RNA sequence: GACCCGGGUGCCGUGACUUCCGCUCCUCGCGCCGACGGCCCUGGCGCACCUUCCCCGGUGCCAGGUCCGUCGGUACGAGGAGGGGGCACGGCACCCGGGUGGCGGCAC
Dot-bracket structure: ......(((((((.(..((...(((((((.((((((((.((((((((..........)))))))).)))))))).)))))))))..).))))))).............
The family of this 108-nucleotide RNA sequence from Pseudonocardia bannensis is "mraW RNA". By type it is a cis-regulatory element. Pairs were carried over by alignment from the consensus structure, which is taken from published work.